[Rfam]
A member of the RNA family "TPP riboswitch aptamer (THI element)" from Cohaesibacter gelatinilyticus, 129 nucleotides long. Vitamin B(1) in its active form thiamin pyrophosphate (TPP) is an essential coenzyme that is synthesised by coupling of pyrimidine and thiazole moieties in bacteria. It scores 68 bits against the family's covariance model. The source organism's lineage runs through Bacteria, Pseudomonadota, Alphaproteobacteria, Hyphomicrobiales and Cohaesibacter.
RNA sequence: CGCAUUCACCAGGGGGGUUCCGGUAAGGAGCUGAGAGUCUGCUAGCUAUGUCCGUUGGACAAGCACCGCAGUGACCCUAUGAACCUGAUCCAGUUCAUACUGGCGUAGGGACGGUGCAGCGAUACAGGA
Numbered sequence: 001c002g003c004a005u006u007c008a009c010c011a012g013g014g015g016g017g018u019u020c021c022g023g024u025a026a027g028g029a030g031c032u033g034a035g036a037g038u039c040u041g042c043u044a045g046c047u048a049u050g051u052c053c054g055u056u057g058g059a060c061a062a063g064c065a066c067c068g069c070a071g072u073g074a075c076c077c078u079a080u081g082a083a084c085c086u087g088a089u090c091c092a093g094u095u096c097a098u099a100c101u102g103g104c105g106u107a108g109g110g111a112c113g114g115u116g117c118a119g120c121g122a123u124a125c126a127g128g129a
Base pairs, nucleotide, nucleotide: 007116008115009114010113011078012077013076014075016072017031018030019029020028021027039071040070041069042068084109085108086107087106090103091102092101093100
Dot-bracket structure: ......((((((((.((((((.....))))).......((((.........................)))))..)))).....((((..((((......))))..))))...)))).............